RNA sequence: GUCUGACAUGGACCCACGGUAGCAAGUCUUGCUCCAUCAUUUGGCCGCGGCGCCAUGAC
Numbered sequence: 001g002u003c004u005g006a007c008a009u010g011g012a013c014c015c016a017c018g019g020u021a022g023c024a025a026g027u028c029u030u031g032c033u034c035c036a037u038c039a040u041u042u043g044g045c046c047g048c049g050g051c052g053c054c055a056u057g058a059c
Base pairs, nucleotide, nucleotide: 007049009047010046011045013043016041018035019034021033022032023031024030025029

Rfam assigns this 59-nucleotide sequence from Wohlfahrtiimonas chitiniclastica to the family "Selenocysteine insertion sequence 3". The family's consensus secondary structure was predicted with CMfinder. The literature on the family includes a 1996 paper in RNA by Huttenhofer et al., "Solution structure of mRNA hairpins promoting selenocysteine incorporation in Escherichia coli and their base-specific interaction with special elongation factor SELB". Rfam links the family to the GO term selenocysteine incorporation.